[Rfam]
The family of this 75-nucleotide RNA sequence from Alligator mississippiensis is "Mammalian CPEB3 ribozyme". The mammalian CPEB3 ribozyme is a self cleaving RNA located in the second intron of the CPEB3 gene which belongs to a family of genes regulating messenger RNA polyadenylation.
RNA sequence: GGUUGCAAUUUUGAGGUCAUAGCAGAAGCAGUCAGGGUGCAGCCCUGUCAGAUUCCAAUGAAUUUGAAUUCUGCU
Numbered sequence: 001g002g003u004u005g006c007a008a009u010u011u012u013g014a015g016g017u018c019a020u021a022g023c024a025g026a027a028g029c030a031g032u033c034a035g036g037g038u039g040c041a042g043c044c045c046u047g048u049c050a051g052a053u054u055c056c057a058a059u060g061a062a063u064u065u066g067a068a069u070u071c072u073g074c075u
Stems, first nucleotide, its partner, number of pairs: 013045001015044003021075007028040003049066007